[Rfam]
RNA sequence: GCCACCCUUUUUGUUCCUUGCUUCUAUUGGUACGGCUGAGCCAAAUUAAGAAGCUACUAACCCGUAAGGAGCGAUUUUUAUA
Numbered sequence: 001g002c003c004a005c006c007c008u009u010u011u012u013g014u015u016c017c018u019u020g021c022u023u024c025u026a027u028u029g030g031u032a033c034g035g036c037u038g039a040g041c042c043a044a045a046u047u048a049a050g051a052a053g054c055u056a057c058u059a060a061c062c063c064g065u066a067a068g069g070a071g072c073g074a075u076u077u078u079u080a081u082a
Base pairs, nucleotide, nucleotide: 013072014071015070016069017068018067019066020054021053022052023051024050025049028043029042030041

This 82-nucleotide RNA sequence from Psychromonas algicola belongs to the Rfam family "RpsF leader". The literature on the family includes a 2014 paper in RNA by Fu et al., "Bacterial RNA motif in the 5' UTR of rpsF interacts with an S6:S18 complex". Gene Ontology terms of the family: negative regulation of translation and protein binding. Rfam classes the family as a cis-regulatory leader. The pairing is the family consensus, mapped onto this sequence. From the family's description: Conserved and widely distributed to many bacterial species RNA structure. It precedes operon containing rpsF, which encodes ribosomal protein S6. The motif also precedes operon containing rpsR, which encodes ribosomal protein S18. The RNA was shown to interact with S6:S18 protein dimer in vitro.